Background
Rfam assigns this 80-nucleotide sequence to the family "mir-199 microRNA precursor family". Rfam links the family to the GO terms miRNA-mediated post-transcriptional gene silencing and RISC complex. Pairs were carried over by alignment from the consensus structure, which was predicted with RNAalifold. This family consists of the microRNA (miRNA) precursor mir-199 which appears to be specific to humans. Animal miRNAs are transcribed as ~70nt precursors and subsequently processed by the Dicer enzyme to give a ~22nt product. In this case the mature sequence comes from the 3' arm of the precursor. The extents of the hairpin precursors are not generally known and are estimated based on hairpin prediction. On this family, see Mourelatos et al., Genes Dev 2002: "miRNPs: a novel class of ribonucleoproteins containing numerous microRNAs".
RNA sequence: GCUCCGUCGCCCCAGUGUUCAGACUACCUGUUCAGGACAAUGCUGUUGUACAGUAGUCUGCACAUUGGUUAGACUGGGCA
Numbered sequence: 001g002c003u004c005c006g007u008c009g010c011c012c013c014a015g016u017g018u019u020c021a022g023a024c025u026a027c028c029u030g031u032u033c034a035g036g037a038c039a040a041u042g043c044u045g046u047u048g049u050a051c052a053g054u055a056g057u058c059u060g061c062a063c064a065u066u067g068g069u070u071a072g073a074c075u076g077g078g079c080a
Base pairs, nucleotide, nucleotide: 012068013067014066015065016064017063018062020060021059022058023057024056025055026054028053029052030051031050033048034047